[Rfam]
RNA: Small nucleolar RNA SNORD42
RNA sequence: GUGCAAGUGAUGUAAACAUGUUUUUACCACUGAGUAAAGUGAUGUUCCCAAAGGAACCGCUGAUGCAC
Numbered sequence: 001g002u003g004c005a006a007g008u009g010a011u012g013u014a015a016a017c018a019u020g021u022u023u024u025u026a027c028c029a030c031u032g033a034g035u036a037a038a039g040u041g042a043u044g045u046u047c048c049c050a051a052a053g054g055a056a057c058c059g060c061u062g063a064u065g066c067a068c
Stems, first nucleotide, its partner, number of pairs: 001068005